Shown here is a 178-nucleotide sequence from Dyella dinghuensis, a member of the family "FMN riboswitch aptamer (RFN element)". Rfam's curators write: The RFN element is a highly conserved domain that is found frequently in the 5'-untranslated regions of prokaryotic mRNAs that encode for flavin mononucleotide (FMN) biosynthesis and transport proteins. The organism belongs to Dyella, within Bacteria. Its family is annotated with FMN binding in the Gene Ontology. It scores 97 bits against the family's covariance model.
[Rfam]
RNA sequence: AAACGUCUUCAGGGCGGGGUGGAAUUCCCCACCGGCGGUAGGGACCGAAAGGUCCGAGCCCGCGAGCGCUUCCGGCUCCUGUCGGAAGGUCAGCAGAUCCGGUCCAAUGCCGGAGCCGACGGUUCACGUUGCAGCUGUUGAUCGCUGCCGCGCAAAGUCCGGAUGAAAGAAGACGGCU
Numbered sequence: 001a002a003a004c005g006u007c008u009u010c011a012g013g014g015c016g017g018g019g020u021g022g023a024a025u026u027c028c029c030c031a032c033c034g035g036c037g038g039u040a041g042g043g044a045c046c047g048a049a050a051g052g053u054c055c056g057a058g059c060c061c062g063c064g065a066g067c068g069c070u071u072c073c074g075g076c077u078c079c080u081g082u083c084g085g086a087a088g089g090u091c092a093g094c095a096g097a098u099c100c101g102g103u104c105c106a107a108u109g110c111c112g113g114a115g116c117c118g119a120c121g122g123u124u125c126a127c128g129u130u131g132c133a134g135c136u137g138u139u140g141a142u143c144g145c146u147g148c149c150g151c152g153c154a155a156a157g158u159c160c161g162g163a164u165g166a167a168a169g170a171a172g173a174c175g176g177c178u
Stems, first nucleotide, its partner, number of pairs: 004175007017029003033118002035063004058116002066094002098114005120161003